[Rfam]
RNA: SAM riboswitch aptamer (S box leader)
Organism: Alteribacter lacisalsi
RNA sequence: ACCUUAUCAAGAGUCGGGGGAGGAAUCUGGUCCUAUGAUCCCGCGGCAACCAUUUAUAACGUGAGCGUUAUAAAAAGGUGCCCAUUCCAGCAGGCGUGUGCCUGAAAGAUAAGGA
Numbered sequence: 001a002c003c004u005u006a007u008c009a010a011g012a013g014u015c016g017g018g019g020g021a022g023g024a025a026u027c028u029g030g031u032c033c034u035a036u037g038a039u040c041c042c043g044c045g046g047c048a049a050c051c052a053u054u055u056a057u058a059a060c061g062u063g064a065g066c067g068u069u070a071u072a073a074a075a076a077g078g079u080g081c082c083c084a085u086u087c088c089a090g091c092a093g094g095c096g097u098g099u100g101c102c103u104g105a106a107a108g109a110u111a112a113g114g115a
Stems, first nucleotide, its partner, number of pairs: 002114007013044001015043004022033003027090004045082004050078002053074008086107001091104005